mir-252 microRNA precursor family: a 93-nucleotide sequence from Lucilia cuprina. Rfam links the family to the GO terms RISC complex and miRNA-mediated post-transcriptional gene silencing. The organism belongs to Lucilia, within Eukaryota. The match comes from Rfam's covariance-model search (53 bits). For this family Rfam cites "Direct sequencing and expression analysis of a large number of miRNAs in Aedes aegypti and a multi-species survey of novel mosquito miRNAs" (Li et al., BMC Genomics, 2009).
RNA sequence: UAAACAAACUAAGUACUGGUACAGCAGGAACUAAAUGGAGCAACAGCAUUUAGCUCCAUAUAGUUCCUGCUGCACCAGUACUUAGUUUGUUUA
Numbered sequence: 001u002a003a004a005c006a007a008a009c010u011a012a013g014u015a016c017u018g019g020u021a022c023a024g025c026a027g028g029a030a031c032u033a034a035a036u037g038g039a040g041c042a043a044c045a046g047c048a049u050u051u052a053g054c055u056c057c058a059u060a061u062a063g064u065u066c067c068u069g070c071u072g073c074a075c076c077a078g079u080a081c082u083u084a085g086u087u088u089g090u091u092u093a
Stems, first nucleotide, its partner, number of pairs: 001093007010084010024070010
Dot-bracket structure: (((((((..((((((((((....((((((((((...........................))))))))))....))))))))))..)))))))